[Rfam]
RNA: Burkholderia sRNA 54
RNA sequence: CAGCCUCUCUCAGGUUCUGCUACGGCCCUCGGAAUUGGCAGAAUCUUUUAGCCGACCAUUGCGGUCGGCUUUUUUU
Numbered sequence: 001c002a003g004c005c006u007c008u009c010u011c012a013g014g015u016u017c018u019g020c021u022a023c024g025g026c027c028c029u030c031g032g033a034a035u036u037g038g039c040a041g042a043a044u045c046u047u048u049u050a051g052c053c054g055a056c057c058a059u060u061g062c063g064g065u066c067g068g069c070u071u072u073u074u075u076u
Stems, first nucleotide, its partner, number of pairs: 012046010026032002051069007